[Rfam]
RNA: Small nucleolar RNA CD11
Organism: Drosophila erecta
RNA sequence: UAUAUUCUAUGAUGAAUGAUUGAGCAGAAGAGUUCUUGAAGACUAUAUUCAUCACCCAAGACUGAAUAUAACUA
Dot-bracket structure: (((.......................(((...)))................................)))....